[Rfam]
RNA: sucA-II RNA
RNA sequence: CUGCGGCGCCGGCUUUGUCGGCGCCGCAGUAAAACCAGGAACGCAGCCCACAAAGCCGUGUUCCUCAUCUGAAAAAUAUAUAGAUGACCAGCAGGGGCAACCGGGCUGGUGCCCGGACUAUCUGCGGGAUCCUUGGUGGCUUCAGUCGCUGUGCCAGGACUUCUUAGCCCUAGUGUCCAUGCCGAUGGUGUCCCCUUAUCGAGGGUGACAA
Dot-bracket structure: (((((((((((((...))))))))))))).........((((((.((.......)).)))))).............................(((((((.(((((......))))).(((((.(((.((.(...(((.(....((((..........))))...).)))...)..))..))).))))))).)))))...............
Numbered sequence: 001c002u003g004c005g006g007c008g009c010c011g012g013c014u015u016u017g018u019c020g021g022c023g024c025c026g027c028a029g030u031a032a033a034a035c036c037a038g039g040a041a042c043g044c045a046g047c048c049c050a051c052a053a054a055g056c057c058g059u060g061u062u063c064c065u066c067a068u069c070u071g072a073a074a075a076a077u078a079u080a081u082a083g084a085u086g087a088c089c090a091g092c093a094g095g096g097g098c099a100a101c102c103g104g105g106c107u108g109g110u111g112c113c114c115g116g117a118c119u120a121u122c123u124g125c126g127g128g129a130u131c132c133u134u135g136g137u138g139g140c141u142u143c144a145g146u147c148g149c150u151g152u153g154c155c156a157g158g159a160c161u162u163c164u165u166a167g168c169c170c171u172a173g174u175g176u177c178c179a180u181g182c183c184g185a186u187g188g189u190g191u192c193c194c195c196u197u198a199u200c201g202a203g204g205g206u207g208a209c210a211a
Stems, first nucleotide, its partner, number of pairs: 001029013039063006046056002093196005098190002101116005118188005124182003128177002131173001135169003139165001144161004